[Rfam]
The family of this 143-nucleotide RNA is "IMES-5 RNA".
RNA sequence: UUGUGAGGAAGGCAGCGGCUCGAGAAGCUGGGGUACUUAGAAGAGAGAAGCAGAAGGGUGAGAAGUCGAGAGAGAUUUCGCCACAUGUUGGACGGGAAGGUCAGAGUCUAACGCUGGUAGACCGCCAGACCCCUUCUACUUCG
Numbered sequence: 001u002u003g004u005g006a007g008g009a010a011g012g013c014a015g016c017g018g019c020u021c022g023a024g025a026a027g028c029u030g031g032g033g034u035a036c037u038u039a040g041a042a043g044a045g046a047g048a049a050g051c052a053g054a055a056g057g058g059u060g061a062g063a064a065g066u067c068g069a070g071a072g073a074g075a076u077u078u079c080g081c082c083a084c085a086u087g088u089u090g091g092a093c094g095g096g097a098a099g100g101u102c103a104g105a106g107u108c109u110a111a112c113g114c115u116g117g118u119a120g121a122c123c124g125c126c127a128g129a130c131c132c133c134u135u136c137u138a139c140u141u142c143g
Base pairs, nucleotide, nucleotide: 001042002041004039005038006037007036014029015028016027047142048141049140050139053136054135055134056133057132058131067080068079069078070077071076086113087112088111089110090109091108092107093106114128115127116126117125118124